[Rfam]
RNA: Small nucleolar RNA SNORA11
RNA sequence: GAAAUGUUCCCAGAAUAGGCAAAAAAAAUUUCUUCUGUUUCCAGAACAUUUGAAAAACAUAUGGAAACAUAUGGCUUCGUUCCCACAAUUAAUGUGAACCCAAAAACAUACGUUCCCACAACU
Number, nucleotide and partner (000 for none) at each position: 001g000002a051003a050004a049005u048006g047007u046008u045009c000010c000011c000012a000013g040014a039015a038016u037017a036018g035019g034020c000021a000022a030023a000024a000025a000026a000027a000028a000029u000030u022031u000032c000033u000034u019035c018036u017037g016038u015039u014040u013041c000042c000043a000044g000045a008046a007047c006048a005049u004050u003051u002052g000053a000054a000055a000056a000057a000058c000059a000060u000061a000062u000063g000064g116065a000066a114067a113068c000069a000070u000071a109072u108073g107074g000075c000076u105077u104078c000079g000080u098081u000082c000083c000084c096085a095086c094087a093088a000089u000090u000091a000092a000093u087094g086095u085096g084097a000098a080099c000100c000101c000102a000103a000104a077105a076106a000107c073108a072109u071110a000111c000112g000113u067114u066115c000116c064117c000118a000119c000120a000121a000122c000123u000